[Rfam]
RNA sequence: GGGGCCGGAGGUCAACGUCCGACAGCGCGUGUGCGCCCUCGGGCGCCCUUGUC
Number, nucleotide and partner (000 for none) at each position: 001g000002g000003g000004g000005c000006c000007g000008g000009a000010g000011g000012u000013c000014a000015a000016c045017g044018u043019c042020c041021g040022a039023c000024a000025g036026c035027g034028c033029g000030u000031g000032u000033g028034c027035g026036c025037c000038c000039u022040c021041g020042g019043g018044c017045g016046c000047c000048c000049u000050u000051g000052u000053c000